[Rfam]
RNA sequence: UCUGAAAAGACAGUGAUGCCUGAUUUCCAAGCACAUAUCUGACUUACAUGUGCAGACAGCUCUUGAGUCUGAGUCUUUUCAGU
Numbered sequence: 001u002c003u004g005a006a007a008a009g010a011c012a013g014u015g016a017u018g019c020c021u022g023a024u025u026u027c028c029a030a031g032c033a034c035a036u037a038u039c040u041g042a043c044u045u046a047c048a049u050g051u052g053c054a055g056a057c058a059g060c061u062c063u064u065g066a067g068u069c070u071g072a073g074u075c076u077u078u079u080c081a082g083u
Stems, first nucleotide, its partner, number of pairs: 002082005008076004

Rfam assigns this 83-nucleotide RNA sequence from Pelusios castaneus to the family "Small nucleolar RNA SNORD121A". Rfam links the family to the GO terms RNA processing and nucleolus. A search with the family's covariance model found it, with a score of 61 bits. The base pairs follow the family's consensus structure, which was predicted with WAR.